[Rfam]
About this RNA:
This 97-nucleotide RNA sequence from Petrachloros mirabilis belongs to the Rfam family "c-di-GMP-I riboswitch aptamer". The match comes from Rfam's covariance-model search (42 bits). The organism belongs to Petrachloros mirabilis, within Bacteria.
RNA sequence: UCCCCGAAAUGGCAACUUGCUCCGAAAGGACAGGGCGCAAAUUAGCAGACCUAAGCCAUAAAAAGCAUUGCGGGGUAUGGAUGCUGCUAGUGCCGAA
Numbered sequence: 001u002c003c004c005c006g007a008a009a010u011g012g013c014a015a016c017u018u019g020c021u022c023c024g025a026a027a028g029g030a031c032a033g034g035g036c037g038c039a040a041a042u043u044a045g046c047a048g049a050c051c052u053a054a055g056c057c058a059u060a061a062a063a064a065g066c067a068u069u070g071c072g073g074g075g076u077a078u079g080g081a082u083g084c085u086g087c088u089a090g091u092g093c094c095g096a097a
Stems, first nucleotide, its partner, number of pairs: 012038002017033003021030003041091004046086003050080002056075002059072001